[Rfam]
RNA sequence: GUGGCACUCAAACUGUGGGGGCACUUUCUGCUCUGUUUUUAAAAAAAAGUGCCGCCAUGUUUUGAGUGUUAC
Numbered sequence: 001g002u003g004g005c006a007c008u009c010a011a012a013c014u015g016u017g018g019g020g021g022c023a024c025u026u027u028c029u030g031c032u033c034u035g036u037u038u039u040u041a042a043a044a045a046a047a048a049g050u051g052c053c054g055c056c057a058u059g060u061u062u063u064g065a066g067u068g069u070u071a072c
Stems, first nucleotide, its partner, number of pairs: 004069009015058004020053006026044002